[Rfam]
RNA sequence: ACCGCCUCUCUACCAAACACUUGCAAGUUCUGUUUAUUGCAAGUGCAUGGAAGAGGCGAAUAGAAAACGGAAUGAUGUCCACUCCUUCGAUUAUCGUUCAUUGGAUUGCGGGCACUUUACCUCGUUCGACAUUU
Numbered sequence: 001a002c003c004g005c006c007u008c009u010c011u012a013c014c015a016a017a018c019a020c021u022u023g024c025a026a027g028u029u030c031u032g033u034u035u036a037u038u039g040c041a042a043g044u045g046c047a048u049g050g051a052a053g054a055g056g057c058g059a060a061u062a063g064a065a066a067a068c069g070g071a072a073u074g075a076u077g078u079c080c081a082c083u084c085c086u087u088c089g090a091u092u093a094u095c096g097u098u099c100a101u102u103g104g105a106u107u108g109c110g111g112g113c114a115c116u117u118u119a120c121c122u123c124g125u126u127c128g129a130c131a132u133u134u
Base pairs, nucleotide, nucleotide: 003058004057005056006055007054008053009052013050014049015048018045019044020043021042022041023040024039025038026037070127071126073124074123075122077120078119084112085111086110088108089107090106091105092104

The record is a 134-nucleotide RNA from Caenorhabditis elegans, which matches "Caenorhabditis snoRNA ceN49" in Rfam. The base pairs follow the family's consensus structure, which was predicted with RNAalifold. Rfam's curators put it in the seed alignment. For this family Rfam cites "Systematic identification of non-coding RNA 2,2,7-trimethylguanosine cap structures in Caenorhabditis elegans" (Jia et al., BMC Mol Biol, 2007). The family's RNA type in Rfam is H/ACA-box small nucleolar RNA. Its family is annotated with nucleolus and RNA processing in the Gene Ontology.